[Rfam]
RNA sequence: GCCGGGUGUUGUGGCACACGCCUGUAAUCCCGCUGCUGGGAGGCUGAGGUUGCCGGAUUGCUUGAGGUCGGGAGUUCUGGGCUGGUGUCCUCUAUGCCAAUUGGGUGUCCGCACUAAGAUCAGUGUCCACGUGGUGCUCCUUGGGGAACCAGGGUGCACCAGGUGUGUUAAAGAGAGGUGAACCGGCCCAGGUCGGAAACGGAGCAGGUCAAAUCCUCCGUGCUGUUCAGUAGUUGGAUCGCACCUGUGAAUAGAUACAGCAGUGCAGCCUGACCAACACAGCGAGACCCAUCCUUUU
Numbered sequence: 001g002c003c004g005g006g007u008g009u010u011g012u013g014g015c016a017c018a019c020g021c022c023u024g025u026a027a028u029c030c031c032g033c034u035g036c037u038g039g040g041a042g043g044c045u046g047a048g049g050u051u052g053c054c055g056g057a058u059u060g061c062u063u064g065a066g067g068u069c070g071g072g073a074g075u076u077c078u079g080g081g082c083u084g085g086u087g088u089c090c091u092c093u094a095u096g097c098c099a100a101u102u103g104g105g106u107g108u109c110c111g112c113a114c115u116a117a118g119a120u121c122a123g124u125g126u127c128c129a130c131g132u133g134g135u136g137c138u139c140c141u142u143g144g145g146g147a148a149c150c151a152g153g154g155u156g157c158a159c160c161a162g163g164u165g166u167g168u169u170a171a172a173g174a175g176a177g178g179u180g181a182a183c184c185g186g187c188c189c190a191g192g193u194c195g196g197a198a199a200c201g202g203a204g205c206a207g208g209u210c211a212a213a214u215c216c217u218c219c220g221u222g223c224u225g226u227u228c229a230g231u232a233g234u235u236g237g238a239u240c241g242c243a244c245c246u247g248u249g250a251a252u253a254g255a256u257a258c259a260g261c262a263g264u265g266c267a268g269c270c271u272g273a274c275c276a277a278c279a280c281a282g283c284g285a286g287a288c289c290c291a292u293c294c295u296u297u298u
Stems, first nucleotide, its partner, number of pairs: 001044003004023006028041003046296004051291002058285005066275007077268003081264004086259003091255005097249001102247007109237002113234004118228002121225006128165003132161006139154006168172001175218004185210004193202003

Rfam assigns this 298-nucleotide RNA sequence from Scyliorhinus torazame to the family "Metazoan signal recognition particle RNA". Rfam links the family to the GO terms SRP-dependent cotranslational protein targeting to membrane, signal sequence recognition and signal recognition particle, endoplasmic reticulum targeting. It is annotated as a non-coding RNA gene. A reference for the family is Wild et al. (2002), "Towards the structure of the mammalian signal recognition particle", Curr Opin Struct Biol. Pairs were carried over by alignment from the consensus structure, which is taken from published work. Clan: SRP clan. Taxonomically the source falls in Scyliorhinus (Eukaryota, Opisthokonta, Chordata, Scyliorhinidae).